[Rfam]
RNA sequence: ACAUUCUUUAUGCUUAAUCCUAGUAUAGGAACGGGGGAUCCAAAUUUUUUGGGGUGAAUCCAAAUAUUGGUAGGGCUCCCUAGCCCGAACCCGACAGCUAACCUCGUAAGCAAUUAAGGGGGAAUGG
Numbered sequence: 001a002c003a004u005u006c007u008u009u010a011u012g013c014u015u016a017a018u019c020c021u022a023g024u025a026u027a028g029g030a031a032c033g034g035g036g037g038a039u040c041c042a043a044a045u046u047u048u049u050u051g052g053g054g055u056g057a058a059u060c061c062a063a064a065u066a067u068u069g070g071u072a073g074g075g076c077u078c079c080c081u082a083g084c085c086c087g088a089a090c091c092c093g094a095c096a097g098c099u100a101a102c103c104u105c106g107u108a109a110g111c112a113a114u115u116a117a118g119g120g121g122g123a124a125u126g127g
Stems, first nucleotide, its partner, number of pairs: 011112004018030003031107006041051002052092003060070004073086004
RNA: c-di-AMP riboswitch aptamer (ydaO/yuaA leader)